[Rfam]
RNA: UnaL2 LINE 3' element
RNA sequence: UAAAUUUCUACUUGUAAGUCGCUUUGGAUAAAAGCGUCUGCCAAAUGAAUAAAU
Dot-bracket structure: ............((((...((((((.....))))))..))).)...........